Mammalian CPEB3 ribozyme: a 77-nucleotide sequence from Parnassius apollo.
RNA sequence: GCAACGUAAUUGGGGGUCAUUGUAGAAGCGUGCUCGUCGCAACCCCAGCCAGCCCCUUUCAGGGCUGCAAUUCUACA
Numbered sequence: 001g002c003a004a005c006g007u008a009a010u011u012g013g014g015g016g017u018c019a020u021u022g023u024a025g026a027a028g029c030g031u032g033c034u035c036g037u038c039g040c041a042a043c044c045c046c047a048g049c050c051a052g053c054c055c056c057u058u059u060c061a062g063g064g065c066u067g068c069a070a071u072u073c074u075a076c077a
Stems, first nucleotide, its partner, number of pairs: 013046005021077007028040003050067006

Lineage of the source: Eukaryota > Ditrysia > Papilionidae > Parnassius > Parnassius.
For this family Rfam cites "Autocatalytic RNA cleavage in the human beta-globin pre-mRNA promotes transcription termination" (Teixeira et al., Nature, 2004).